[Rfam]
RNA sequence: UGCGCCGGAGCCGGGGCCUGAGCCCAGGUCGCGCGGGCCGCGAACUCGUCGAACUGCGUGUGCGGCCGGUGCUCACCCUGCCGGGCCCCGGCUCCGCGAU
Numbered sequence: 001u002g003c004g005c006c007g008g009a010g011c012c013g014g015g016g017c018c019u020g021a022g023c024c025c026a027g028g029u030c031g032c033g034c035g036g037g038c039c040g041c042g043a044a045c046u047c048g049u050c051g052a053a054c055u056g057c058g059u060g061u062g063c064g065g066c067c068g069g070u071g072c073u074c075a076c077c078c079u080g081c082c083g084g085g086c087c088c089c090g091g092c093u094c095c096g097c098g099a100u
Stems, first nucleotide, its partner, number of pairs: 003098003007095002010092009019075005024069002027067008037057002040054001046052002

The record is a 100-nucleotide sequence from Physeter macrocephalus, which matches "mir-1199 microRNA precursor family" in Rfam. Pairs were carried over by alignment from the consensus structure, which was predicted with RNAalifold. A search with the family's covariance model found it, with a score of 98 bits. NCBI's taxonomy places the organism under Eukaryota, Theria, Boreoeutheria, Odontoceti, Physeter.